RNA: Glycine riboswitch aptamer
Organism: gamma proteobacterium HTCC5015
RNA sequence: CGCAUCAGUUCUGGAGAGCAACUCCGACCGGAGUUCACCGAAGGGGACGGCCCGCUGAGGCAGGCUUAAUCUCUCAGGUUCGCGGACAGAAGAGCCUCG
Numbered sequence: 001c002g003c004a005u006c007a008g009u010u011c012u013g014g015a016g017a018g019c020a021a022c023u024c025c026g027a028c029c030g031g032a033g034u035u036c037a038c039c040g041a042a043g044g045g046g047a048c049g050g051c052c053c054g055c056u057g058a059g060g061c062a063g064g065c066u067u068a069a070u071c072u073c074u075c076a077g078g079u080u081c082g083c084g085g086a087c088a089g090a091a092g093a094g095c096c097u098c099g
Stems, first nucleotide, its partner, number of pairs: 006094001009091005020035004037079003040075002044073003049066004